[Rfam]
RNA: Ascomycota telomerase RNA, nucleotides 1118 to 1505
RNA sequence: AAUCAUACAGAAGGAGUCUUCGCGUCGGCAUCUGUGGUUAUCCGAACUGCGUUCUGUUAUGACGGCUUCUGAUGUAGUCGUGUUGGCGAAGGUAUGGAAUCAUUUUAGGAUUGACAGCUCACGGAACAGUCUUCAACUUUGCAAUGACUAGUGUCGUAUGACGAUGUUCACGGUCGACGCUGGAAGCAGCACCGGGACCCAUCUCGAGUUGGAGUCAAAGUUUCGUGCUUGUCUGGUGUUGUGAAAGGCCCGGCCGCUGAGUUGAGUCUACGAUUCCGAGUCGCACUGAUGAGAUUGGGUUGUAUUGUUGGAUCUAAGGACAGGCCUUGUUGGAUGGGGUAGUCCUGGCUGUUCUCUCGCCUGAAAAUGGUGUGGAGGACAGCCCCCC
Numbered sequence: 001a002a003u004c005a006u007a008c009a010g011a012a013g014g015a016g017u018c019u020u021c022g023c024g025u026c027g028g029c030a031u032c033u034g035u036g037g038u039u040a041u042c043c044g045a046a047c048u049g050c051g052u053u054c055u056g057u058u059a060u061g062a063c064g065g066c067u068u069c070u071g072a073u074g075u076a077g078u079c080g081u082g083u084u085g086g087c088g089a090a091g092g093u094a095u096g097g098a099a100u101c102a103u104u105u106u107a108g109g110a111u112u113g114a115c116a117g118c119u120c121a122c123g124g125a126a127c128a129g130u131c132u133u134c135a136a137c138u139u140u141g142c143a144a145u146g147a148c149u150a151g152u153g154u155c156g157u158a159u160g161a162c163g164a165u166g167u168u169c170a171c172g173g174u175c176g177a178c179g180c181u182g183g184a185a186g187c188a189g190c191a192c193c194g195g196g197a198c199c200c201a202u203c204u205c206g207a208g209u210u211g212g213a214g215u216c217a218a219a220g221u222u223u224c225g226u227g228c229u230u231g232u233c234u235g236g237u238g239u240u241g242u243g244a245a246a247g248g249c250c251c252g253g254c255c256g257c258u259g260a261g262u263u264g265a266g267u268c269u270a271c272g273a274u275u276c277c278g279a280g281u282c283g284c285a286c287u288g289a290u291g292a293g294a295u296u297g298g299g300u301u302g303u304a305u306u307g308u309u310g311g312a313u314c315u316a317a318g319g320a321c322a323g324g325c326c327u328u329g330u331u332g333g334a335u336g337g338g339g340u341a342g343u344c345c346u347g348g349c350u351g352u353u354c355u356c357u358c359g360c361c362u363g364a365a366a367a368u369g370g371u372g373u374g375g376a377g378g379a380c381a382g383c384c385c386c387c388c
Stems, first nucleotide, its partner, number of pairs: 196216003199212003218230004
Dot-bracket structure: ...................................................................................................................................................................................................((((((........))).))).((((.....))))..............................................................................................................................................................